[Rfam]
A member of the RNA family "MIR5565 microRNA precursor family" from Miscanthus lutarioriparius, 108 nucleotides long. Its family is annotated with RISC complex and miRNA-mediated post-transcriptional gene silencing in the Gene Ontology.

RNA sequence: GUUGUCAGAUUCACCUCAUCCACAUGUGUUGGUGUGGAUUGGGGUGAAAUUUAGUUCGAGUUCCGCUCCUAUCCACUCCAACACAUGUGGAUUGAUGUGAAUCCGACU
Numbered sequence: 001g002u003u004g005u006c007a008g009a010u011u012c013a014c015c016u017c018a019u020c021c022a023c024a025u026g027u028g029u030u031g032g033u034g035u036g037g038a039u040u041g042g043g044g045u046g047a048a049a050u051u052u053a054g055u056u057c058g059a060g061u062u063c064c065g066c067u068c069c070u071a072u073c074c075a076c077u078c079c080a081a082c083a084c085a086u087g088u089g090g091a092u093u094g095a096u097g098u099g100a101a102u103c104c105g106a107c108u
Stems, first nucleotide, its partner, number of pairs: 004107003008103007016095003019091013034076006041069002044066003